Background: Rfam assigns this 234-nucleotide RNA from Trema andersonii to the family "MIR159 microRNA precursor family". Gene Ontology terms of the family: RISC complex and miRNA-mediated post-transcriptional gene silencing.
RNA sequence: AAUGGUGAGUGAGAGCUUCCUUCAGCCCACUCAUGGAUAUGACAAAAAUGGGGAUGGUGAAGUAACUGCCGACUCAUUCAUUCAAGCGCUCAGUAGAGAAAUAUUGAUCAAUAAAAGCAACGGAGAGAUUCAUAUAAAAGCAUUUUCUACUGUGGUUGCGUGAAUGAAGCGGGAGAUAUUUUGCAUCCCUCUUUCUCUGUGCUUGGACUGAAGGGAGCUCCUCCUUUUCAUUAA
Numbered sequence: 001a002a003u004g005g006u007g008a009g010u011g012a013g014a015g016c017u018u019c020c021u022u023c024a025g026c027c028c029a030c031u032c033a034u035g036g037a038u039a040u041g042a043c044a045a046a047a048a049u050g051g052g053g054a055u056g057g058u059g060a061a062g063u064a065a066c067u068g069c070c071g072a073c074u075c076a077u078u079c080a081u082u083c084a085a086g087c088g089c090u091c092a093g094u095a096g097a098g099a100a101a102u103a104u105u106g107a108u109c110a111a112u113a114a115a116a117g118c119a120a121c122g123g124a125g126a127g128a129u130u131c132a133u134a135u136a137a138a139a140g141c142a143u144u145u146u147c148u149a150c151u152g153u154g155g156u157u158g159c160g161u162g163a164a165u166g167a168a169g170c171g172g173g174a175g176a177u178a179u180u181u182u183g184c185a186u187c188c189c190u191c192u193u194u195c196u197c198u199g200u201g202c203u204u205g206g207a208c209u210g211a212a213g214g215g216a217g218c219u220c221c222u223c224c225u226u227u228u229c230a231u232u233a234a
Base pairs, nucleotide, nucleotide: 013220014219015218016217017216018215019214020213023210024209025208027206028205029204036197066175067174069172070171071170075166076165077164078163083158084157085156
Lineage of the source: Eukaryota > Spermatophyta > fabids > Cannabaceae > Trema.